Rfam assigns this 71-nucleotide RNA from Phocoena sinus to the family "mir-34 microRNA precursor family".
Human mir-34a was discovered computationally and later experimentally verified. The mature sequence is excised from the 5' arm of the hairpin.

RNA sequence: GUUUUGAUGGCAGUGGAAUUAGUGAUUGUAAGCAUCAGAGUACAAUCAGCUAAUUACACUGCCUACAAACC
Numbered sequence: 001g002u003u004u005u006g007a008u009g010g011c012a013g014u015g016g017a018a019u020u021a022g023u024g025a026u027u028g029u030a031a032g033c034a035u036c037a038g039a040g041u042a043c044a045a046u047c048a049g050c051u052a053a054u055u056a057c058a059c060u061g062c063c064u065a066c067a068a069a070c071c
Stems, first nucleotide, its partner, number of pairs: 003069004009063002012060004017055006023048008